[Rfam]
RNA sequence: CAUCGGCACCUUUCACGACGGAUCGUCCGGCACGUACCUGCCGGUGAAGGGAAGCACCA
Numbered sequence: 001c002a003u004c005g006g007c008a009c010c011u012u013u014c015a016c017g018a019c020g021g022a023u024c025g026u027c028c029g030g031c032a033c034g035u036a037c038c039u040g041c042c043g044g045u046g047a048a049g050g051g052a053a054g055c056a057c058c059a
Stems, first nucleotide, its partner, number of pairs: 009051007027044006

This 59-nucleotide RNA sequence from Actinomyces sp. oral taxon 849 belongs to the Rfam family "msiK RNA". It scores 65 bits against the family's covariance model. The family's consensus secondary structure is taken from published work.